RNA: 6S / SsrS RNA
RNA sequence: UGCGGUCUGCGCCUCUCGACAGGAACCACAAUCCCUGGGGCCAUACUCGAUCCAAAGGGAGCUGUCCCUGUCUGGGCUCGUGGGCCUGGACACACGGUGCCCACCUACGUUUGUAGGCGCCCAGGAUCGUAAACAUCCAUCGGUCGUCGUGGAUCGCAC
Numbered sequence: 001u002g003c004g005g006u007c008u009g010c011g012c013c014u015c016u017c018g019a020c021a022g023g024a025a026c027c028a029c030a031a032u033c034c035c036u037g038g039g040g041c042c043a044u045a046c047u048c049g050a051u052c053c054a055a056a057g058g059g060a061g062c063u064g065u066c067c068c069u070g071u072c073u074g075g076g077c078u079c080g081u082g083g084g085c086c087u088g089g090a091c092a093c094a095c096g097g098u099g100c101c102c103a104c105c106u107a108c109g110u111u112u113g114u115a116g117g118c119g120c121c122c123a124g125g126a127u128c129g130u131a132a133a134c135a136u137c138c139a140u141c142g143g144u145c146g147u148c149g150u151g152g153a154u155c156g157c158a159c
Stems, first nucleotide, its partner, number of pairs: 002157010012146001015143001017142003032126002035124001037122003040118003057102003061098005070091007